Overview: The record is a 165-nucleotide sequence from Oribacterium sp. oral taxon 078, which matches "Clostridiales-1 RNA" in Rfam.
[Rfam]
RNA sequence: UGAUUACAGCGUUACAGCUCUUCCCUCCGCGCCGUGCUUGCACGGGUGCGGAGCGAAGAGCUGAUGACGCGCCCCGUCAUGAGCAUGGAAUGGGCGAAGCCCAGGGGAAUGCGAAUGGCGGGGAGCAUGUCGAAAGCCGCGAAGCGGCGAAGACAUGCGGAAUCA
Numbered sequence: 001u002g003a004u005u006a007c008a009g010c011g012u013u014a015c016a017g018c019u020c021u022u023c024c025c026u027c028c029g030c031g032c033c034g035u036g037c038u039u040g041c042a043c044g045g046g047u048g049c050g051g052a053g054c055g056a057a058g059a060g061c062u063g064a065u066g067a068c069g070c071g072c073c074c075c076g077u078c079a080u081g082a083g084c085a086u087g088g089a090a091u092g093g094g095c096g097a098a099g100c101c102c103a104g105g106g107g108a109a110u111g112c113g114a115a116u117g118g119c120g121g122g123g124a125g126c127a128u129g130u131c132g133a134a135a136g137c138c139g140c141g142a143a144g145c146g147g148c149g150a151a152g153a154c155a156u157g158c159g160g161a162a163u164c165a
Base pairs, nucleotide, nucleotide: 001165002164003163004162005161007159010069011068012067013066016062017061018060019059020058021057022056023055025053026052027051028050029049030048031047032045033044034043035042036041073122074121075120076119077118078117079116080115083112084111085110086109091103092102093101094100095099125158126157127156128155129154130153131152136148137147138146139145
The family has 194 seed sequences and 1,172 matches in Rfam 15.1. A search with the family's covariance model found it, with a score of 115 bits. It is annotated as a small RNA. The base pairs follow the family's consensus structure, which is taken from published work. NCBI's taxonomy places the organism under Bacteria, Bacillota, Lachnospiraceae, Oribacterium, Oribacterium sp. oral taxon 078.